[Rfam]
RNA sequence: AUGAAGUGUGACAUGCCCGUUUGGGAUUAUUACUCUGAUGCGUGUUUAUUUUAUUAAAUAAUUGAUAUUUGGGAACGGGGUGUUACAAUUAA
Numbered sequence: 001a002u003g004a005a006g007u008g009u010g011a012c013a014u015g016c017c018c019g020u021u022u023g024g025g026a027u028u029a030u031u032a033c034u035c036u037g038a039u040g041c042g043u044g045u046u047u048a049u050u051u052u053a054u055u056a057a058a059u060a061a062u063u064g065a066u067a068u069u070u071g072g073g074a075a076c077g078g079g080g081u082g083u084u085a086c087a088a089u090u091a092a
Stems, first nucleotide, its partner, number of pairs: 002092001004090002007087008016079006
RNA: MIR2617 microRNA precursor family
Organism: Medicago truncatula